[Rfam]
RNA sequence: GGAUCAUUUCAAAGAGAGUUUGGGACUGUGAAACCAAGAGCACUCAAUGCUGUGAACAAAGAUUGAAGUUCCCCACCAAAUGCCAUAGUUACUUAAUAGUGCUAUAUUUUUCUAAGGAUUUAUAAUG
Numbered sequence: 001g002g003a004u005c006a007u008u009u010c011a012a013a014g015a016g017a018g019u020u021u022g023g024g025a026c027u028g029u030g031a032a033a034c035c036a037a038g039a040g041c042a043c044u045c046a047a048u049g050c051u052g053u054g055a056a057c058a059a060a061g062a063u064u065g066a067a068g069u070u071c072c073c074c075a076c077c078a079a080a081u082g083c084c085a086u087a088g089u090u091a092c093u094u095a096a097u098a099g100u101g102c103u104a105u106a107u108u109u110u111u112c113u114a115a116g117g118a119u120u121u122a123u124a125a126u127g
Stems, first nucleotide, its partner, number of pairs: 002057001004055004014045003018041004024035001073117002079111002085105004090101004